A member of the RNA family "pemK RNA" from Hornefia porci, 97 nucleotides long. NCBI's taxonomy places the organism under Bacteria, Bacillati, Bacillota, Anaerovoracaceae, Hornefia. Rfam classes the family as a cis-regulatory element.

RNA sequence: ACAAUGAUACUUCCGUCCAGUCACAGCCCUGCAGGAAUGCGGGAUCACGCAAUUAGGGCGGCUCCGGGAGAACCCCGGAGGAGCCGGCAGCUCAUGA
Numbered sequence: 001a002c003a004a005u006g007a008u009a010c011u012u013c014c015g016u017c018c019a020g021u022c023a024c025a026g027c028c029c030u031g032c033a034g035g036a037a038u039g040c041g042g043g044a045u046c047a048c049g050c051a052a053u054u055a056g057g058g059c060g061g062c063u064c065c066g067g068g069a070g071a072a073c074c075c076c077g078g079a080g081g082a083g084c085c086g087g088c089a090g091c092u093c094a095u096g097a
Stems, first nucleotide, its partner, number of pairs: 012094001013061006062080003066076003081093003